Rfam assigns this 91-nucleotide RNA from Mediterraneibacter hominis to the family "skipping-rope RNA". Rfam classes the family as a small RNA.
RNA sequence: AGUCUUCGAGGUGAAAAGUGCGUCGUCAUACGCCACAUGCCCUUGGCAAUGGGCAAAAGAGAUGCCGGGAGUGACGCUCCAGCCGAGGACU
Numbered sequence: 001a002g003u004c005u006u007c008g009a010g011g012u013g014a015a016a017a018g019u020g021c022g023u024c025g026u027c028a029u030a031c032g033c034c035a036c037a038u039g040c041c042c043u044u045g046g047c048a049a050u051g052g053g054c055a056a057a058a059g060a061g062a063u064g065c066c067g068g069g070a071g072u073g074a075c076g077c078u079c080c081a082g083c084c085g086a087g088g089a090c091u
Stems, first nucleotide, its partner, number of pairs: 001091008011029004023073001031059001033052003064083002067080002